[Rfam]
RNA: TPP riboswitch aptamer (THI element)
Organism: Psychromicrobium silvestre
RNA sequence: UUCCAUCCACACGGGUGCCCUUGGCAAAGGGCUGAGAUCGGGCUGAUACCGCCUGCGACCGUUCGAACCUGUCCGGGUCAUACCGGCGAAGGAAGUAGGAAAUAUGCGUAA
Numbered sequence: 001u002u003c004c005a006u007c008c009a010c011a012c013g014g015g016u017g018c019c020c021u022u023g024g025c026a027a028a029g030g031g032c033u034g035a036g037a038u039c040g041g042g043c044u045g046a047u048a049c050c051g052c053c054u055g056c057g058a059c060c061g062u063u064c065g066a067a068c069c070u071g072u073c074c075g076g077g078u079c080a081u082a083c084c085g086g087c088g089a090a091g092g093a094a095g096u097a098g099g100a101a102a103u104a105u106g107c108g109u110a111a
Stems, first nucleotide, its partner, number of pairs: 006099002009096002011062004017032005039055005068092003073086004